[Rfam]
Rfam assigns this 95-nucleotide sequence from Sulfuritortus calidifontis to the family "TPP riboswitch aptamer (THI element)". The source organism's lineage runs through Bacteria, Pseudomonadati, Betaproteobacteria, Thiobacillaceae and Sulfuritortus. It scores 69 bits against the family's covariance model. Pairs were carried over by alignment from the consensus structure, which is taken from published work.
RNA sequence: UAUGUUCGCUAGGGGUCUCCGGCCCGCCGGAGUGAGACACACCCUUUGAACCUGACCCGGGUCAUGCCGGCGUAGGGAAGCGUCCUAUCUGGCCC
Numbered sequence: 001u002a003u004g005u006u007c008g009c010u011a012g013g014g015g016u017c018u019c020c021g022g023c024c025c026g027c028c029g030g031a032g033u034g035a036g037a038c039a040c041a042c043c044c045u046u047u048g049a050a051c052c053u054g055a056c057c058c059g060g061g062u063c064a065u066g067c068c069g070g071c072g073u074a075g076g077g078a079a080g081c082g083u084c085c086u087a088u089c090u091g092g093c094c095c
Stems, first nucleotide, its partner, number of pairs: 007082004011045004016039001017032005051076004057070004